A member of the RNA family "SAM (S-adenosyl methionine) riboswitch aptamer" from Frankia nepalensis, 111 nucleotides long.
The match comes from Rfam's covariance-model search (63 bits).
Clan: SAM clan.
From the family's description: SAM-IV is a mRNA element that regulates gene expression via direct sensing of S-adenosylmethionine (SAM or AdoMet).
[Rfam]
RNA sequence: GGUCAAGAGGAUGGUGUCAAGGCCUGGCUCGCCGUCCGGCAACCUUCGCGCAAGGUGCCCCAGGAACGACCUGAUCGCCGCCAGUGACAGCUGACGGCGAUAACGCGGAUC
Numbered sequence: 001g002g003u004c005a006a007g008a009g010g011a012u013g014g015u016g017u018c019a020a021g022g023c024c025u026g027g028c029u030c031g032c033c034g035u036c037c038g039g040c041a042a043c044c045u046u047c048g049c050g051c052a053a054g055g056u057g058c059c060c061c062a063g064g065a066a067c068g069a070c071c072u073g074a075u076c077g078c079c080g081c082c083a084g085u086g087a088c089a090g091c092u093g094a095c096g097g098c099g100a101u102a103a104c105g106c107g108g109a110u111c
Stems, first nucleotide, its partner, number of pairs: 001071004009037007020029002038059003043055003074101007082093004